The record is a 129-nucleotide RNA sequence from Xenopus laevis, which matches "Small nucleolar RNA SNORA63" in Rfam. The literature on the family includes a 1997 paper in Proc Natl Acad Sci U S A by Mishra and Eliceiri, "Three small nucleolar RNAs that are involved in ribosomal RNA precursor processing". Rfam 15.1 lists 1,279 matches to the family in 601 species. Rfam classes the family as an H/ACA-box small nucleolar RNA. The base pairs follow the family's consensus structure, which was predicted with PFOLD. It scores 111 bits against the family's covariance model. Rfam describes the family as follows. E3 belongs to the H/ACA class of snoRNAs and is involved in the processing of eukaryotic pre-rRNA and has regions of complementarity to 18S rRNA. E3 is encoded in introns in the gene for protein synthesis initiation factor 4AII. Rfam links the family to the GO terms nucleolus and RNA processing.
RNA sequence: CUGCAGGUUAAGUUACAAUACAUCUGUGCAGUGUUGUGUUGUCGUUCCCCCUGCAAAAAAUAAAUUGCUUCCUACUAUCCCUGUCUUUUGACCCUACCCCAACAGACAGGGACGCUUGGUCUCAAACAU
Numbered sequence: 001c002u003g004c005a006g007g008u009u010a011a012g013u014u015a016c017a018a019u020a021c022a023u024c025u026g027u028g029c030a031g032u033g034u035u036g037u038g039u040u041g042u043c044g045u046u047c048c049c050c051c052u053g054c055a056a057a058a059a060a061u062a063a064a065u066u067g068c069u070u071c072c073u074a075c076u077a078u079c080c081c082u083g084u085c086u087u088u089u090g091a092c093c094c095u096a097c098c099c100c101a102a103c104a105g106a107c108a109g110g111g112a113c114g115c116u117u118g119g120u121c122u123c124a125a126a127c128a129u
Stems, first nucleotide, its partner, number of pairs: 003054005015042008024033001080110004085105002088102001